[Rfam]
RNA sequence: AGGUGCAAGUUUGAAACCAUAACAGAAGUGUUCAUGGUGCAGCCUCUCAGAUUCCAGUGAAUCUGCAAGUUCUGUU
Numbered sequence: 001a002g003g004u005g006c007a008a009g010u011u012u013g014a015a016a017c018c019a020u021a022a023c024a025g026a027a028g029u030g031u032u033c034a035u036g037g038u039g040c041a042g043c044c045u046c047u048c049a050g051a052u053u054c055c056a057g058u059g060a061a062u063c064u065g066c067a068a069g070u071u072c073u074g075u076u
Stems, first nucleotide, its partner, number of pairs: 013044001017042001021076007028040003048065007
A member of the RNA family "Mammalian CPEB3 ribozyme" from Alligator sinensis, 76 nucleotides long. The family's consensus secondary structure is taken from published work. Lineage of the source: Eukaryota > Metazoa > Deuterostomia > Archosauria > Alligator. The mammalian CPEB3 ribozyme is a self cleaving RNA located in the second intron of the CPEB3 gene which belongs to a family of genes regulating messenger RNA polyadenylation. This ribozyme is highly conserved and found only in mammals.